[Rfam]
RNA sequence: UUGGGGUGUUGCGACUGGCGAUGAGGUGGGACACCACCGGGGAGCAGCACGAAGAGAAGACCUUAAGAUCGUACGCCUGGGACGCGAGG
Number, nucleotide and partner (000 for none) at each position: 001u000002u000003g000004g000005g000006g050007u049008g048009u047010u046011g045012c044013g000014a000015c041016u040017g077018g076019c075020g074021a000022u000023g000024a000025g000026g037027u036028g035029g034030g000031a000032c000033a000034c029035c028036a027037c026038c000039g000040g016041g015042g000043a000044g012045c011046a010047g009048c008049a007050c006051g000052a000053a000054g000055a000056g000057a000058a000059g000060a000061c000062c000063u000064u000065a000066a000067g083068a000069u081070c080071g000072u000073a000074c020075g019076c018077c017078u000079g000080g070081g069082a000083c067084g000085c000086g000087a000088g000089g000

Rfam assigns this 89-nucleotide RNA from Arthrobacter glacialis to the family "ZMP/ZTP riboswitch aptamer (pfl RNA motif)". Its family is annotated with one-carbon metabolic process and regulation of purine nucleotide biosynthetic process in the Gene Ontology. On this family, see Jones and Ferre-D'Amare, Nat Struct Mol Biol 2015: "Recognition of the bacterial alarmone ZMP through long-distance association of two RNA subdomains". It scores 49 bits against the family's covariance model.